Shown here is an 80-nucleotide sequence from Diceros bicornis, a member of the family "Small nucleolar RNA SNORD115". A search with the family's covariance model found it, with a score of 72 bits. Pairs were carried over by alignment from the consensus structure, which was predicted with PFOLD. A reference for the family is Cavaille et al. (2000), "Identification of brain-specific and imprinted small nucleolar RNA genes exhibiting an unusual genomic organization", Proc Natl Acad Sci U S A. Lineage of the source: Eukaryota > Opisthokonta > Deuterostomia > Amniota > Diceros bicornis.
RNA sequence: CAGUCAAUGAUGAGAACUCAUAUUGUCUUGAAGAGAGAUGAUGACCUAAAAAUCAUGCUCAAAAGCAUUGCUCUGAGCUC
Numbered sequence: 001c002a003g004u005c006a007a008u009g010a011u012g013a014g015a016a017c018u019c020a021u022a023u024u025g026u027c028u029u030g031a032a033g034a035g036a037g038a039u040g041a042u043g044a045c046c047u048a049a050a051a052a053u054c055a056u057g058c059u060c061a062a063a064a065g066c067a068u069u070g071c072u073c074u075g076a077g078c079u080c
Stems, first nucleotide, its partner, number of pairs: 002079003005075002009071001
Notes:
By type it is a C/D-box small nucleolar RNA.